[Rfam]
The record is a 74-nucleotide sequence from Clarias magur, which matches "Small nucleolar RNA SNORD2" in Rfam. For this family Rfam cites "Identification of a novel box C/D snoRNA from mouse nucleolar cDNA library" (Zhou et al., Gene, 2004). NCBI's taxonomy places the organism under Eukaryota, Gnathostomata, Actinopterygii, Actinopteri, Clarias. A search with the family's covariance model found it, with a score of 66 bits.

RNA sequence: GUGUGAAAUGAUGGCAUACCAUCUUUCGGGACUGACUGCACUGGAGAGACCUUUUUUCACUUUACUGAUCAUAC
Numbered sequence: 001g002u003g004u005g006a007a008a009u010g011a012u013g014g015c016a017u018a019c020c021a022u023c024u025u026u027c028g029g030g031a032c033u034g035a036c037u038g039c040a041c042u043g044g045a046g047a048g049a050c051c052u053u054u055u056u057u058c059a060c061u062u063u064a065c066u067g068a069u070c071a072u073a074c
Stems, first nucleotide, its partner, number of pairs: 001074006